[Rfam]
Annotation:
A member of the RNA family "mir-196 microRNA precursor family" from Monodelphis domestica, 76 nucleotides long. It scores 72 bits against the family's covariance model. Gene Ontology terms of the family: gene silencing by miRNA and RISC complex. NCBI's taxonomy places the organism under Eukaryota, Metazoa, Eumetazoa, Vertebrata, Monodelphis.
RNA sequence: UCAGUGGGUUAGGUAGUUUCCUGUUGUUGGGCCUAGAUUUCUAAACACAAGAACAUCAAACCACCUGAUUCACUGC
Numbered sequence: 001u002c003a004g005u006g007g008g009u010u011a012g013g014u015a016g017u018u019u020c021c022u023g024u025u026g027u028u029g030g031g032c033c034u035a036g037a038u039u040u041c042u043a044a045a046c047a048c049a050a051g052a053a054c055a056u057c058a059a060a061c062c063a064c065c066u067g068a069u070u071c072a073c074u075g076c
Stems, first nucleotide, its partner, number of pairs: 003074012016061004022055004027050003031046001